A member of the RNA family "c-di-AMP riboswitch aptamer (ydaO/yuaA leader)" from Paraconexibacter algicola, 161 nucleotides long.
The organism belongs to Paraconexibacter, within Bacteria.
The match comes from Rfam's covariance-model search (63 bits).

RNA sequence: CUGCAGCAAACGCCGAGUCCGUCGCUCCCGCCCGGGGAGCGGUGGAGCGGGGGACCCAACGGAUCCAUGAUCCAGGGGCGAAUCCGGACACCCGUCCGGUAGCGCGGCACUCGACCGCGCGAGCCCGUCAGCUCACCCCGUAGGCCGUCAUACGAGGAGCU
Number, nucleotide and partner (000 for none) at each position: 001c000002u000003g000004c000005a000006g000007c000008a000009a000010a000011c000012g145013c144014c143015g000016a000017g000018u046019c045020c044021g043022u042023c041024g040025c039026u038027c037028c036029c035030g000031c000032c000033c000034g000035g029036g028037g027038a026039g025040c024041g023042g022043u021044g020045g019046a018047g141048c140049g139050g138051g137052g136053g000054a000055c000056c000057c075058a000059a000060c000061g000062g000063a000064u000065c000066c000067a000068u000069g000070a000071u000072c000073c000074a000075g057076g126077g125078g124079c000080g000081a000082a000083u000084c099085c098086g097087g096088a000089c000090a000091c000092c000093c000094g000095u000096c087097c086098g085099g084100u000101a000102g120103c119104g118105c117106g000107g000108c000109a000110c000111u000112c000113g000114a000115c000116c000117g105118c104119g103120c102121g000122a000123g000124c078125c077126c076127g000128u000129c000130a000131g000132c000133u000134c000135a000136c052137c051138c050139c049140g048141u047142a000143g014144g013145c012146c000147g000148u000149c000150a000151u000152a000153c000154g000155a000156g000157g000158a000159g000160c000161u000